A member of the RNA family "U11 spliceosomal RNA" from Dendrobium catenatum, 127 nucleotides long.
Rfam classes the family as a spliceosomal small nuclear RNA.
A search with the family's covariance model found it, with a score of 42 bits.

[Rfam]
Nucleotides: 127
Base pairs, nucleotide, nucleotide: 008080009079010078011077012076014032015031018028033051035049036048038046039045053074054073055072056071057070058069095125096124097123098122101121102120103119104118105117106116107115108114
Number, partner (000 for none) and nucleotide at each position: 001000a002000a003000a004000a005000a006000g007000g008080a009079u010078c011077g012076g013000u014032u015031g016000g017000c018028u019000a020000u021000g022000u023000a024000u025000g026000u027000g028018a029000c030000g031015c032014a033051c034000a035049u036048c037000u038046u039045u040000u041000a042000a043000u044000u045039g046038a047000u048036g049035g050000a051033g052000g053074c054073g055072u056071a057070u058069g059000a060000u061000u062000a063000u064000c065000a066000a067000g068000a069058c070057a071056u072055a073054u074053g075000a076012c077011c078010g079009a080008u081000a082000u083000a084000a085000u086000u087000u088000a089000a090000g091000g092000a093000u094000g095125a096124u097123a098122u099000a100000g101121g102120g103119u104118u105117g106116g107115c108114u109000u110000g111000c112000u113000u114108g115107g116106c117105c118104a119103a120102u121101u122098g123097u124096a125095u126000a127000u